A member of the RNA family "RAGATH-5 RNA" from Faecalibacterium prausnitzii, 50 nucleotides long. The family's RNA type in Rfam is ribozyme. Taxonomically the source falls in Faecalibacterium prausnitzii (Bacteria, Eubacteriales, Oscillospiraceae, Faecalibacterium). A reference for the family is Weinberg et al. (2015), "New classes of self-cleaving ribozymes revealed by comparative genomics analysis", Nat Chem Biol. Rfam links the family to the GO term catalytic activity.
RNA sequence: CCGGACACCUUGACGGGCCGCACCGUAAAGCGACCCGGUCCCAACACCCG
Numbered sequence: 001c002c003g004g005a006c007a008c009c010u011u012g013a014c015g016g017g018c019c020g021c022a023c024c025g026u027a028a029a030g031c032g033a034c035c036c037g038g039u040c041c042c043a044a045c046a047c048c049c050g
Stems, first nucleotide, its partner, number of pairs: 002025003013039001014037004019032003